[Rfam]
RNA sequence: UGCCUGUGAUGACUCGCCAUGCUAAUACCGACCCCCACGGCAGUGCUUGGCUCUGCCUUGGGUGGGGAUGAGUUAAAUUCGCUCCUCGUGGAGUCCUGAGGCAU
Numbered sequence: 001u002g003c004c005u006g007u008g009a010u011g012a013c014u015c016g017c018c019a020u021g022c023u024a025a026u027a028c029c030g031a032c033c034c035c036c037a038c039g040g041c042a043g044u045g046c047u048u049g050g051c052u053c054u055g056c057c058u059u060g061g062g063u064g065g066g067g068a069u070g071a072g073u074u075a076a077a078u079u080c081g082c083u084c085c086u087c088g089u090g091g092a093g094u095c096c097u098g099a100g101g102c103a104u
Base pairs, nucleotide, nucleotide: 001103002102003101004100041055042054043053045051
Notes:
A member of the RNA family "Small nucleolar RNA U6-53/MBII-28" from Pelusios castaneus, 104 nucleotides long. Rfam classes the family as a C/D-box small nucleolar RNA. The family has 25 seed sequences and 780 matches in Rfam 15.1. The source organism's lineage runs through Eukaryota, Chordata, Gnathostomata, Amniota and Pelusios.